[Rfam]
RNA sequence: UGACCGGUUCCUCUCUUCGGGGAGCUAAAAGGCCAUGCGGACAGCCGGGUCAAAUGCCGA
Numbered sequence: 001u002g003a004c005c006g007g008u009u010c011c012u013c014u015c016u017u018c019g020g021g022g023a024g025c026u027a028a029a030a031g032g033c034c035a036u037g038c039g040g041a042c043a044g045c046c047g048g049g050u051c052a053a054a055u056g057c058c059g060a
Base pairs, nucleotide, nucleotide: 001052002051003050004049005048006026007025008024009023010022011021012020013019
RNA: Streptococcus sRNA SpF59 (ldcC RNA)